[Rfam]
RNA sequence: UCGUGCUAGACGGGGAGGUAGCGGCGCCCUGUAACCCGCAAUCCGCUCUAGCGGGGUUGAAUUCCUCAUUUGAGGCAUCGUAAUUGUUUGGUCUGCCCUUGACAAGUGGUGUUGAAGGUUGGGUCUUGCGCAAUGGGAACCUGUGAACCAUGUCAGGUCCGGAAGGAAGCAGCAUUAAUCAGUGCUUCUCAUGUGCCGCGAGGUUGCCUGGCCCGAGCUAACUAUCAAGGUAACGCAGGUGAUUGCAUGUCGAGGUGAGGUGCGCGA
Numbered sequence: 001u002c003g004u005g006c007u008a009g010a011c012g013g014g015g016a017g018g019u020a021g022c023g024g025c026g027c028c029c030u031g032u033a034a035c036c037c038g039c040a041a042u043c044c045g046c047u048c049u050a051g052c053g054g055g056g057u058u059g060a061a062u063u064c065c066u067c068a069u070u071u072g073a074g075g076c077a078u079c080g081u082a083a084u085u086g087u088u089u090g091g092u093c094u095g096c097c098c099u100u101g102a103c104a105a106g107u108g109g110u111g112u113u114g115a116a117g118g119u120u121g122g123g124u125c126u127u128g129c130g131c132a133a134u135g136g137g138a139a140c141c142u143g144u145g146a147a148c149c150a151u152g153u154c155a156g157g158u159c160c161g162g163a164a165g166g167a168a169g170c171a172g173c174a175u176u177a178a179u180c181a182g183u184g185c186u187u188c189u190c191a192u193g194u195g196c197c198g199c200g201a202g203g204u205u206g207c208c209u210g211g212c213c214c215g216a217g218c219u220a221a222c223u224a225u226c227a228a229g230g231u232a233a234c235g236c237a238g239g240u241g242a243u244u245g246c247a248u249g250u251c252g253a254g255g256u257g258a259g260g261u262g263c264g265c266g267a
Stems, first nucleotide, its partner, number of pairs: 001267006009058003012030004017025001019023001035055005064260007074251005081245010095231001098229005106222002108219003117213008125202006131193002134191005141182003150175004158167003
A member of the RNA family "Bacterial large signal recognition particle RNA" from Listeria innocua, 267 nucleotides long.
Rfam's curators write: The signal recognition particle (SRP) is a universally conserved ribonucleoprotein involved in the co-translational targeting of proteins to membranes.
Pairs were carried over by alignment from the consensus structure, which is taken from published work.
The family's RNA type in Rfam is non-coding RNA gene.
It is one of the family's seed sequences.